[Rfam]
RNA sequence: CAGUGGGGGGCGUGUCUAGGACUGUCUAACCUGAGAAUGGUGAUGUGUGAGGGUCAAUCUCAGGUUCGUCAGCCCAUGAAACGCCUUCUCCAG
Number, nucleotide and partner (000 for none) at each position: 001c000002a000003g000004u000005g090006g089007g088008g086009g085010g084011c083012g082013u081014g000015u079016c078017u000018a000019g075020g074021a000022c072023u071024g070025u000026c068027u000028a066029a065030c064031c063032u062033g061034a060035g059036a058037a000038u056039g055040g000041u000042g000043a000044u000045g000046u000047g000048u000049g000050a000051g000052g000053g000054u000055c039056a038057a000058u036059c035060u034061c033062a032063g031064g030065u029066u028067c000068g026069u000070c024071a023072g022073c000074c020075c019076a000077u000078g016079a015080a000081a013082c012083g011084c010085c009086u008087u000088c007089u006090c005091c000092a000093g000

The record is a 93-nucleotide RNA sequence from Ornithorhynchus anatinus, which matches "mir-1388 microRNA precursor family" in Rfam. The literature on the family includes a 2008 paper in Genome Res by Murchison et al., "Conservation of small RNA pathways in platypus".